Rfam assigns this 133-nucleotide sequence from Desulfosporosinus sp. I2 to the family "Molybdenum/Tungsten riboswitch aptamer (Moco RNA motif)".
Taxonomically the source falls in Desulfosporosinus (Bacteria, Clostridia, Eubacteriales, Desulfitobacteriaceae).
It scores 54 bits against the family's covariance model.
Pairs were carried over by alignment from the consensus structure, which is taken from published work.

Nucleotides: 133
Base pairs, nucleotide, nucleotide: 006124012118013117014116015115016114021055022054023053024052026051027050029048030047034044035043036042037041060074061073062072063071064070077102078101079100080099081098082097083096084095085094086093087092103110104109
Number, partner (000 for none) and nucleotide at each position: 001000u002000u003000a004000a005000u006124u007000g008000u009000c010000u011000c012118g013117c014116u015115c016114c017000g018000a019000a020000g021055c022054u023053g024052g025000a026051u027050c028000c029048c030047c031000u032000a033000a034044a035043g036042c037041c038000c039000a040000u041037g042036g043035c044034u045000a046000u047030g048029g049000u050027g051026a052024c053023c054022a055021g056000a057000c058000u059000g060074g061073u062072g063071u064070c065000u066000u067000a068000a069000a070064g071063a072062c073061a074060c075000u076000c077102g078101g079100g080099u081098a082097u083096u084095a085094u086093g087092g088000g089000a090000a091000a092087c093086u094085g095084u096083a097082a098081u099080a100079u101078c102077u103110c104109c105000u106000g107000c108000u109104g110103g111000a112000a113000a114016g115015g116014a117013g118012u119000c120000u121000g122000u123000c124006a125000a126000a127000c128000a129000g130000g131000u132000g133000g